[Rfam]
RNA sequence: GUGGGAAGCGCGCGGCCGCAAAUCCGACUGUGUCAACCGCUGUUUCGGUUGGCUUGGGAUUGCGGAAGUGC
Number, nucleotide and partner (000 for none) at each position: 001g000002u000003g000004g000005g000006a000007a000008g000009c000010g071011c070012g069013c068014g000015g000016c065017c064018g063019c062020a061021a060022a000023u000024c058025c057026g000027a000028c000029u000030g000031u000032g053033u052034c051035a050036a049037c048038c047039g000040c000041u000042g000043u000044u000045u000046c000047g038048g037049u036050u035051g034052g033053c032054u000055u000056g000057g025058g024059a000060u021061u020062g019063c018064g017065g016066a000067a000068g013069u012070g011071c010